[Rfam]
RNA sequence: CUCAGUGGGUGGGGUCCCUCAGCCUGGAUUGUGAAAGGGUGCAAGCCAGGCCGAGGGAUUCCACCAGUGCACA
Numbered sequence: 001c002u003c004a005g006u007g008g009g010u011g012g013g014g015u016c017c018c019u020c021a022g023c024c025u026g027g028a029u030u031g032u033g034a035a036a037g038g039g040u041g042c043a044a045g046c047c048a049g050g051c052c053g054a055g056g057g058a059u060u061c062c063a064c065c066a067g068u069g070c071a072c073a
Base pairs, nucleotide, nucleotide: 002071005068008065009064011062012061013060014059015058016057017056018055019054020053022051023050024049026047027046029044030043031042032041033040